[Rfam]
RNA: FMN riboswitch aptamer (RFN element)
Organism: Actinopolymorpha pittospori
RNA sequence: GCGCGUGCUCCGGGGUCGGUGAAACUCCGAACCGGCGGUGACAGUCCGCGACCCGGUCGAAGUCGGUACGCCGACCUCGACCGGUUGACCAGGUGGAAUUCCUGGACCGACGGUUAAAGUCCGGAUGGGAGGCAGCACGCGG
Numbered sequence: 001g002c003g004c005g006u007g008c009u010c011c012g013g014g015g016u017c018g019g020u021g022a023a024a025c026u027c028c029g030a031a032c033c034g035g036c037g038g039u040g041a042c043a044g045u046c047c048g049c050g051a052c053c054c055g056g057u058c059g060a061a062g063u064c065g066g067u068a069c070g071c072c073g074a075c076c077u078c079g080a081c082c083g084g085u086u087g088a089c090c091a092g093g094u095g096g097a098a099u100u101c102c103u104g105g106a107c108c109g110a111c112g113g114u115u116a117a118a119g120u121c122c123g124g125a126u127g128g129g130a131g132g133c134a135g136c137a138c139g140c141g142g
Base pairs, nucleotide, nucleotide: 003140004139005138006137007136008135009134010131017029018028019027031120032119033109034108035049036048037047038046044107045106053084054083055082056081057080058079059078060077089105090104091103092102093101111123112122113121